Source information: The family of this 92-nucleotide RNA from Paenibacillus sp. FSL R7-0331 is "c-di-GMP-I riboswitch aptamer".

RNA sequence: CAUGUAUAAAGGCAAACUGUCCGAAAGGGCAGGACGCAAAGCAAUGGGCCUAAUCAUGCGCAUUCGGCAUUUAUGGCUGCCAGGCUGCCGGU
Numbered sequence: 001c002a003u004g005u006a007u008a009a010a011g012g013c014a015a016a017c018u019g020u021c022c023g024a025a026a027g028g029g030c031a032g033g034a035c036g037c038a039a040a041g042c043a044a045u046g047g048g049c050c051u052a053a054u055c056a057u058g059c060g061c062a063u064u065c066g067g068c069a070u071u072u073a074u075g076g077c078u079g080c081c082a083g084g085c086u087g088c089c090g091g092u
Stems, first nucleotide, its partner, number of pairs: 012037002017032006040086003045082003048077003056070003
Lineage of the source: Bacteria > Bacillota > Bacilli > Caryophanales > Paenibacillus. Pairs were carried over by alignment from the consensus structure, which is taken from published work.